Rfam assigns this 141-nucleotide RNA sequence from Streptomyces sp. Ru73 to the family "c-di-AMP riboswitch aptamer (ydaO/yuaA leader)". It scores 88 bits against the family's covariance model. The source organism's lineage runs through Bacteria, Bacillati, Kitasatosporales, Streptomycetaceae and Streptomyces.
RNA sequence: ACUUCAGUACCGCACCACCUGCCAAGGGAACCGGGGAACCACCACCUUGGGGUGAAUCGGGCGACUCCUCGGAGCCGCCCGUAGGAGACCUUCCUGCUCCGAACCCGUCAGCUAACCCGGUAGGCGAGAAGGAAGGAAAGG
Dot-bracket structure: ..........(((.....((......)).((((((....((......))(((.....((((((............))))))..((((.........))))...))).........))))))..)))...............